[Rfam]
Rfam assigns this 83-nucleotide RNA sequence from Drosophila simulans to the family "mir-973 microRNA precursor family". The base pairs follow the family's consensus structure, which was predicted with RNAalifold. Taxonomically the source falls in Sophophora (Eukaryota, Opisthokonta, Bilateria, Muscomorpha). Rfam 15.1 lists 13 matches to the family in 13 species.
RNA sequence: AUACUUUUCCGGGUUGGUGGUUGAACUUCGAUUUUAAGCAUUUAAAUAAGAUAAAUCUGUUCAUUCUUCGACCCAAAAAGUUC
Number, nucleotide and partner (000 for none) at each position: 001a000002u000003a081004c080005u079006u078007u077008u076009c000010c000011g073012g072013g000014u071015u070016g069017g068018u000019g066020g000021u000022u063023g062024a061025a060026c059027u000028u000029c000030g057031a056032u055033u054034u053035u000036a000037a000038g000039c000040a000041u000042u000043u000044a000045a000046a000047u000048a000049a000050g000051a000052u000053a034054a033055a032056u031057c030058u000059g026060u025061u024062c023063a022064u000065u000066c019067u000068u017069c016070g015071a014072c012073c011074c000075a000076a008077a007078a006079a005080g004081u003082u000083c000